[Rfam]
RNA sequence: AGCUUUGCCCAGUGGCGGCAUUGUAGCCAAUGAGGUUUACCUGAGGUACAAUUAUUGCUAAUUGAAAACUUUUCCCAAUACCCCUCCAUGACGACUUGAAAUAUAGUCAGCACUGGCAAUUUUUGACUGUCUCUACAGAGA
Dot-bracket structure: ...................(((((.(((.....((.....))..)))))))).................................((.((..((((........))))..))..)).............((((....))))
RNA: U4 spliceosomal RNA
Organism: Pan troglodytes